L31-Actinobacteria ribosomal protein leader: a 48-nucleotide RNA. On this family, see Eckert and Weinberg, BMC Microbiol 2020: "Discovery of 20 novel ribosomal leader candidates in bacteria and archaea". It is one of the family's seed sequences. The family's consensus secondary structure is taken from published work.
Nucleotides: 048
Stems, first nucleotide, its partner, number of pairs: 003048003007043004015037004021032003
Number, partner (000 for none) and nucleotide at each position: 001000a002000c003048g004047g005046u006000u007043c008042c009041g010040g011000u012000u013000c014000a015037c016036g017035u018034c019000u020000c021032c022031c023030c024000g025000c026000u027000u028000g029000c030023g031022g032021g033000c034018g035017a036016c037015g038000a039000c040010c041009c042008g043007g044000c045000g046005a047004c048003c